[Rfam]
RNA sequence: AUACGUGUAGGGUGGAGAUGCACAACCGUCGGACCGUGUAGUACUGCGUUCAGUCCACAGGCCCCUGGCCCCGCGACCGAACCCGGUCUUGAUCAAGAUGCCCACUGGGCGUCCACGGCCGAAGGCUGAUUCCUCCUCCUGACUGAGUGCAUUUGACACCACAGCUAGCAGGACGCGUCGUCGCGACUUCGGCAGUUCUGGUUUACCAGGCCACCGCAAGCCGCUGGACACGGGAUGGCCCCGCCAGCCCUGACGCACCCUGACACCGACCGUGAGAAGUCGUGUGUGCCGAACGCCGUUUCCGGCAGCCCGGAAACCGA
Numbered sequence: 001a002u003a004c005g006u007g008u009a010g011g012g013u014g015g016a017g018a019u020g021c022a023c024a025a026c027c028g029u030c031g032g033a034c035c036g037u038g039u040a041g042u043a044c045u046g047c048g049u050u051c052a053g054u055c056c057a058c059a060g061g062c063c064c065c066u067g068g069c070c071c072c073g074c075g076a077c078c079g080a081a082c083c084c085g086g087u088c089u090u091g092a093u094c095a096a097g098a099u100g101c102c103c104a105c106u107g108g109g110c111g112u113c114c115a116c117g118g119c120c121g122a123a124g125g126c127u128g129a130u131u132c133c134u135c136c137u138c139c140u141g142a143c144u145g146a147g148u149g150c151a152u153u154u155g156a157c158a159c160c161a162c163a164g165c166u167a168g169c170a171g172g173a174c175g176c177g178u179c180g181u182c183g184c185g186a187c188u189u190c191g192g193c194a195g196u197u198c199u200g201g202u203u204u205a206c207c208a209g210g211c212c213a214c215c216g217c218a219a220g221c222c223g224c225u226g227g228a229c230a231c232g233g234g235a236u237g238g239c240c241c242c243g244c245c246a247g248c249c250c251u252g253a254c255g256c257a258c259c260c261u262g263a264c265a266c267c268g269a270c271c272g273u274g275a276g277a278a279g280u281c282g283u284g285u286g287u288g289c290c291g292a293a294c295g296c297c298g299u300u301u302c303c304g305g306c307a308g309c310c311c312g313g314a315a316a317c318c319g320a
Stems, first nucleotide, its partner, number of pairs: 014136004023128002026125002029122004036116003040089002097113004137173005176255004180229003183224003190216003195211002232250003236246003263287004267282004298317007
About this RNA:
This 320-nucleotide sequence from Pseudomonas sp. SDI belongs to the Rfam family "rne-II RNA". Taxonomically the source falls in Pseudomonas (Bacteria, Gammaproteobacteria, Pseudomonadales, Pseudomonadaceae). The base pairs follow the family's consensus structure, which is taken from published work.